[Rfam]
RNA sequence: UUGAAGACUUUAAUUUAAAGACUUCAACUUGCAAACUUGAAUACUUUGAAAACUUCAACUUGCAUAAUUGAAGAAUUUGAAGACUUCAAUU
Numbered sequence: 001u002u003g004a005a006g007a008c009u010u011u012a013a014u015u016u017a018a019a020g021a022c023u024u025c026a027a028c029u030u031g032c033a034a035a036c037u038u039g040a041a042u043a044c045u046u047u048g049a050a051a052a053c054u055u056c057a058a059c060u061u062g063c064a065u066a067a068u069u070g071a072a073g074a075a076u077u078u079g080a081a082g083a084c085u086u087c088a089a090u091u
Stems, first nucleotide, its partner, number of pairs: 001089006014081006022073005030064004037058005
This 91-nucleotide RNA from Solanum commersonii belongs to the Rfam family "MIR8024 microRNA precursor family". Taxonomically the source falls in Solanum (Eukaryota, Euphyllophyta, Magnoliopsida, Gunneridae).